[Rfam]
RNA sequence: AUUAUAUAAUGAAUUAGUUUGUUAUUGUUAUAUUAAAAUUAUAGCAUUAAAUCAUCAAAUUGCAGGCAAUUUCUAAAGUACCCUUUACCAAGUAAUUCUGGUAACAGAUUAUGGCCUAGGUAAUGACUAGGAUGGUUAUAAUAAGGGUAAUAUAAUGAAUAAUCUGCAGCCAAGUACCAAUCUUUAGAUAUAUAUUAGUUUGGUAUGCAGUUCAUCGACUAUAUGGUGAUUGGCGCAAGCUUAAGAAAUAGUCAAGCCCCAUACGAAAGUAUGCA
Numbered sequence: 001a002u003u004a005u006a007u008a009a010u011g012a013a014u015u016a017g018u019u020u021g022u023u024a025u026u027g028u029u030a031u032a033u034u035a036a037a038a039u040u041a042u043a044g045c046a047u048u049a050a051a052u053c054a055u056c057a058a059a060u061u062g063c064a065g066g067c068a069a070u071u072u073c074u075a076a077a078g079u080a081c082c083c084u085u086u087a088c089c090a091a092g093u094a095a096u097u098c099u100g101g102u103a104a105c106a107g108a109u110u111a112u113g114g115c116c117u118a119g120g121u122a123a124u125g126a127c128u129a130g131g132a133u134g135g136u137u138a139u140a141a142u143a144a145g146g147g148u149a150a151u152a153u154a155a156u157g158a159a160u161a162a163u164c165u166g167c168a169g170c171c172a173a174g175u176a177c178c179a180a181u182c183u184u185u186a187g188a189u190a191u192a193u194a195u196u197a198g199u200u201u202g203g204u205a206u207g208c209a210g211u212u213c214a215u216c217g218a219c220u221a222u223a224u225g226g227u228g229a230u231u232g233g234c235g236c237a238a239g240c241u242u243a244a245g246a247a248a249u250a251g252u253c254a255a256g257c258c259c260c261a262u263a264c265g266a267a268a269g270u271a272u273g274c275a
Stems, first nucleotide, its partner, number of pairs: 006025008030040001050231005056225002061168006071159003169211002174206004183198002186195001215254001217253005233240002260273005
RNA: Group I catalytic intron